[Rfam]
Rfam assigns this 138-nucleotide sequence from Falcunculus frontatus to the family "Small nucleolar RNA SNORA12".
For this family Rfam cites "A novel experimental approach for systematic identification of box H/ACA snoRNAs from eukaryotes" (Gu et al., Nucleic Acids Res, 2005).
The family's RNA type in Rfam is H/ACA-box small nucleolar RNA.
It scores 49 bits against the family's covariance model.
The family has 23 seed sequences and 571 matches in Rfam 15.1.
The source organism's lineage runs through Eukaryota, Dipnotetrapodomorpha, Dinosauria, Passeriformes and Falcunculus.
The base pairs follow the family's consensus structure, which was predicted with RNAalifold.
RNA sequence: UAUUGUGGUGGUUGCUGUGUGUGGCAGAUCUGUAAGUGCAUCAGAACUGUCAGAACUACCACAGAGAUCAGAAAGGAGAGGGCUAUGCUGACAACUUCAAGCUUUGAGUUUUCAGCUCUCUGUCCAGCUCCUACAGGA
Numbered sequence: 001u002a003u004u005g006u007g008g009u010g011g012u013u014g015c016u017g018u019g020u021g022u023g024g025c026a027g028a029u030c031u032g033u034a035a036g037u038g039c040a041u042c043a044g045a046a047c048u049g050u051c052a053g054a055a056c057u058a059c060c061a062c063a064g065a066g067a068u069c070a071g072a073a074a075g076g077a078g079a080g081g082g083c084u085a086u087g088c089u090g091a092c093a094a095c096u097u098c099a100a101g102c103u104u105u106g107a108g109u110u111u112u113c114a115g116c117u118c119u120c121u122g123u124c125c126a127g128c129u130c131c132u133a134c135a136g137g138a
Base pairs, nucleotide, nucleotide: 005062006061007060008059009058010057011056023051024050025049027047029045030044031043032042075131076130077129078128098122099121101119